RNA sequence: CUCCUGUGAUGAAUCAAGCCAUGCUAAUACUGAUGCACUCGACGGACACGGUGCGUCUGUCCUGCUGUAAGUGAGUUCAACUCAACUUCUCAUGCUGAUGGGA
Numbered sequence: 001c002u003c004c005u006g007u008g009a010u011g012a013a014u015c016a017a018g019c020c021a022u023g024c025u026a027a028u029a030c031u032g033a034u035g036c037a038c039u040c041g042a043c044g045g046a047c048a049c050g051g052u053g054c055g056u057c058u059g060u061c062c063u064g065c066u067g068u069a070a071g072u073g074a075g076u077u078c079a080a081c082u083c084a085a086c087u088u089c090u091c092a093u094g095c096u097g098a099u100g101g102g103a
Base pairs, nucleotide, nucleotide: 001102002101003100043059044058045057046056047055

This 103-nucleotide RNA from Merluccius polli belongs to the Rfam family "Small nucleolar RNA U6-53/MBII-28". For this family Rfam cites "RNomics: an experimental approach that identifies 201 candidates for novel, small, non-messenger RNAs in mouse" (Huttenhofer et al., EMBO J, 2001). Pairs were carried over by alignment from the consensus structure. The family has 25 seed sequences and 780 matches in Rfam 15.1. Gene Ontology terms of the family: nucleolus and RNA processing.